RNA sequence: CUUCGUACUUUUCCACAGCUUUCUUGAACUGCAUGGGUCUAUAUCCUACUCAGAAGCUACCCCAGUGUUAAGAAAGUUGGGACUGUGCCUACUGCGGUUCAAUAAAGCUGUGGGAAAAUACGGAUA
Numbered sequence: 001c002u003u004c005g006u007a008c009u010u011u012u013c014c015a016c017a018g019c020u021u022u023c024u025u026g027a028a029c030u031g032c033a034u035g036g037g038u039c040u041a042u043a044u045c046c047u048a049c050u051c052a053g054a055a056g057c058u059a060c061c062c063c064a065g066u067g068u069u070a071a072g073a074a075a076g077u078u079g080g081g082a083c084u085g086u087g088c089c090u091a092c093u094g095c096g097g098u099u100c101a102a103u104a105a106a107g108c109u110g111u112g113g114g115a116a117a118a119u120a121c122g123g124a125u126a
Stems, first nucleotide, its partner, number of pairs: 003123005013113003017109006024102004029097005
A member of the RNA family "MIR396 microRNA precursor family" from Nelumbo nucifera, 126 nucleotides long.
Rfam links the family to the GO terms miRNA-mediated post-transcriptional gene silencing and RISC complex.